[Rfam]
RNA: tRNA
Organism: Naegleria fowleri
Nucleotides: 081
Base pairs, nucleotide, nucleotide: 001080002079003078004077005076006075007074010025011024012023027043028042029041030040031039057073058072059071060070061069
Number, partner (000 for none) and nucleotide at each position: 001080g002079c003078g004077g005076u006075c007074g008000u009000g010025g011024c012023c013000g014000a015000g016000u017000g018000g019000u020000u021000a022000a023012g024011g025010c026000g027043u028042u029041a030040g031039a032000c033000u034000u035000g036000a037000a038000a039031u040030c041029u042028a043027a044000u045000g046000g047000g048000g049000a050000a051000a052000c053000c054000u055000u056000c057073g058072c059071a060070g061069g062000u063000u064000c065000a066000a067000g068000u069061c070060c071059u072058g073057c074007c075006g076005a077004c078003c079002g080001c081000g